[Rfam]
RNA sequence: GUGCCUUAAACUAAUGAGUAAGGAAAAUAACGAUCUGGGUGACGCCAGAUCUACGAUCAGUUUCGUACUUAAUUUUUGACGGAUUUAGAGGUUGCCCUUGGGUGACCCGCUUACUUCUGCGGGAUGCCUGUGUUGCAGCGACCUCC
Numbered sequence: 001g002u003g004c005c006u007u008a009a010a011c012u013a014a015u016g017a018g019u020a021a022g023g024a025a026a027a028u029a030a031c032g033a034u035c036u037g038g039g040u041g042a043c044g045c046c047a048g049a050u051c052u053a054c055g056a057u058c059a060g061u062u063u064c065g066u067a068c069u070u071a072a073u074u075u076u077u078g079a080c081g082g083a084u085u086u087a088g089a090g091g092u093u094g095c096c097c098u099u100g101g102g103u104g105a106c107c108c109g110c111u112u113a114c115u116u117c118u119g120c121g122g123g124a125u126g127c128c129u130g131u132g133u134u135g136c137a138g139c140g141a142c143c144u145c146c
Base pairs, nucleotide, nucleotide: 004023005022006021007020008019032051033050034049035048036047037046038045052067053066054065055064056063089144090143091142092141093140094139095138097132100129101128102127103126104125106123107122108121109120110119
Rfam assigns this 146-nucleotide RNA from Exaiptasia diaphana to the family "U12 minor spliceosomal RNA". The base pairs follow the family's consensus structure. NCBI's taxonomy places the organism under Eukaryota, Eumetazoa, Hexacorallia, Aiptasiidae, Exaiptasia. Its Rfam clan is "U2 clan". The family's RNA type in Rfam is spliceosomal small nuclear RNA. The family has 62 seed sequences and 2,106 matches in Rfam 15.1.